[Rfam]
The family of this 53-nucleotide RNA sequence from Actinokineospora terrae is "L31-Actinobacteria ribosomal protein leader". The source organism's lineage runs through Bacteria, Bacillati, Actinomycetes, Pseudonocardiaceae and Actinokineospora. Clan: Ribosomal Protein L31 Leader clan.

RNA sequence: CCGGCUCCGGUUCACCCCGCCAGUAACAGCUGGUCAGCGGGGACCCGGCGGCC
Numbered sequence: 001c002c003g004g005c006u007c008c009g010g011u012u013c014a015c016c017c018c019g020c021c022a023g024u025a026a027c028a029g030c031u032g033g034u035c036a037g038c039g040g041g042g043a044c045c046c047g048g049c050g051g052c053c
Stems, first nucleotide, its partner, number of pairs: 003053003007048004015042006023035001